[Rfam]
RNA: S. pyogenes small RNA 779816
Organism: Streptococcus phage Javan577
RNA sequence: GUAAAGAGACCUACUGCAAAGCAGGUUUCUGACCAUACAUGAUUCGCCUUACGUUCGGACCGUCCAAAGUUGAGCGUAGGGCUUUUU
Numbered sequence: 001g002u003a004a005a006g007a008g009a010c011c012u013a014c015u016g017c018a019a020a021g022c023a024g025g026u027u028u029c030u031g032a033c034c035a036u037a038c039a040u041g042a043u044u045c046g047c048c049u050u051a052c053g054u055u056c057g058g059a060c061c062g063u064c065c066a067a068a069g070u071u072g073a074g075c076g077u078a079g080g081g082c083u084u085u086u087u
Stems, first nucleotide, its partner, number of pairs: 005030008016022002046082011058071003